About this RNA
The record is a 132-nucleotide sequence from Castor canadensis, which matches "Small nucleolar RNA SNORA51" in Rfam. The match comes from Rfam's covariance-model search (114 bits). Its family is annotated with nucleolus and RNA processing in the Gene Ontology. From the family's description: ACA51 is a member of the H/ACA class of snoRNA that guide the sites of modification of uridines to pseudouridines.
RNA sequence: AGCCUUCUGAUGCUUGUCAUCAGCUGUGUUCUUGCACUGACUGUAUAGAAAAAGUUGGCAAAGUAAACCUACCCCAUAUAUACCUCAGCCCAGGUCCUGUAACUGGUCUGUAUUGUGACUGUGGAGACAUGG
Numbered sequence: 001a002g003c004c005u006u007c008u009g010a011u012g013c014u015u016g017u018c019a020u021c022a023g024c025u026g027u028g029u030u031c032u033u034g035c036a037c038u039g040a041c042u043g044u045a046u047a048g049a050a051a052a053a054g055u056u057g058g059c060a061a062a063g064u065a066a067a068c069c070u071a072c073c074c075c076a077u078a079u080a081u082a083c084c085u086c087a088g089c090c091c092a093g094g095u096c097c098u099g100u101a102a103c104u105g106g107u108c109u110g111u112a113u114u115g116u117g118a119c120u121g122u123g124g125a126g127a128c129a130u131g132g
Stems, first nucleotide, its partner, number of pairs: 002059003007054002021043003026037004072124002075121002086110003090106004095101001